[Rfam]
RNA sequence: CAGGGUAGAUAAACCAGCACGGGCGUCGGAGAUCUCCUCCACGCCCGUGCUCGCUUGUUAGGGCAGACAUAAAACGA
Numbered sequence: 001c002a003g004g005g006u007a008g009a010u011a012a013a014c015c016a017g018c019a020c021g022g023g024c025g026u027c028g029g030a031g032a033u034c035u036c037c038u039c040c041a042c043g044c045c046c047g048u049g050c051u052c053g054c055u056u057g058u059u060a061g062g063g064c065a066g067a068c069a070u071a072a073a074a075c076g077a
Base pairs, nucleotide, nucleotide: 003015004014017050018049019048020047021046022045023044024043025042028040029039030038031037
Record summary: The family of this 77-nucleotide sequence from Tenebrionibacter intestinalis is "tpke11". The match comes from Rfam's covariance-model search (51 bits). NCBI's taxonomy places the organism under Bacteria, Pseudomonadati, Pseudomonadota, Enterobacteriaceae, Tenebrionibacter. On this family, see Rivas et al., Curr Biol 2001: "Computational identification of noncoding RNAs in E. coli by comparative genomics". Rfam links the family to the GO term response to temperature stimulus. The family's RNA type in Rfam is small RNA. About the family: In Yersinia located in ICR upstream dnaJ (chaperone)gene.